[Rfam]
RNA sequence: GAACGCCCGGUCUGUCGGUGAAAAGCGAUGCGAGACCGGCGCGAAACGCUCUCAGUAAUCCUCCGCACUCCGGUCCGCUUAGCACGGAGUCCGAGAGUGGCAGAGCUCCGUAAAUUCGGAGUUCGCUAUUCGACCACAUGCUCGGAAGGAGGAGAUCAUGGCCGGGCCGGCCUGGGCUGCCGAAGCUCAGCAGCUCUGAAGUCCUUUGUGUAAGUCGCGCCGCCUUUUGGCGAGAGGAGCCAUACGAAAGCGGAUGGCCGGCAAAAGCUCCCAGCGCGCGAGUUGAGAGGCUAAACCGAGGUCAGCGGGCGUUC
Numbered sequence: 001g002a003a004c005g006c007c008c009g010g011u012c013u014g015u016c017g018g019u020g021a022a023a024a025g026c027g028a029u030g031c032g033a034g035a036c037c038g039g040c041g042c043g044a045a046a047c048g049c050u051c052u053c054a055g056u057a058a059u060c061c062u063c064c065g066c067a068c069u070c071c072g073g074u075c076c077g078c079u080u081a082g083c084a085c086g087g088a089g090u091c092c093g094a095g096a097g098u099g100g101c102a103g104a105g106c107u108c109c110g111u112a113a114a115u116u117c118g119g120a121g122u123u124c125g126c127u128a129u130u131c132g133a134c135c136a137c138a139u140g141c142u143c144g145g146a147a148g149g150a151g152g153a154g155a156u157c158a159u160g161g162c163c164g165g166g167c168c169g170g171c172c173u174g175g176g177c178u179g180c181c182g183a184a185g186c187u188c189a190g191c192a193g194c195u196c197u198g199a200a201g202u203c204c205u206u207u208g209u210g211u212a213a214g215u216c217g218c219g220c221c222g223c224c225u226u227u228u229g230g231c232g233a234g235a236g237g238a239g240c241c242a243u244a245c246g247a248a249a250g251c252g253g254a255u256g257g258c259c260g261g262c263a264a265a266a267g268c269u270c271c272c273a274g275c276g277c278g279c280g281a282g283u284u285g286a287g288a289g290g291c292u293a294a295a296c297c298g299a300g301g302u303c304a305g306c307g308g309g310c311g312u313u314c
Stems, first nucleotide, its partner, number of pairs: 001314009012305003015299005030283001031041001034167001036165004050161002055156001059152002062149002216278005221232004236271004251260003
RNA: raiA RNA